[Rfam]
RNA sequence: GCGGGUGCAAUGAUAAUAAAAACAUUCCUCGUCCUGAUGGGAGAUCCCCCGUGAUCGACUCCUAUACACCCAUAGAAUCUGAGCACC
Numbered sequence: 001g002c003g004g005g006u007g008c009a010a011u012g013a014u015a016a017u018a019a020a021a022a023c024a025u026u027c028c029u030c031g032u033c034c035u036g037a038u039g040g041g042a043g044a045u046c047c048c049c050c051g052u053g054a055u056c057g058a059c060u061c062c063u064a065u066a067c068a069c070c071c072a073u074a075g076a077a078u079c080u081g082a083g084c085a086c087c
Base pairs, nucleotide, nucleotide: 003087004086006085007084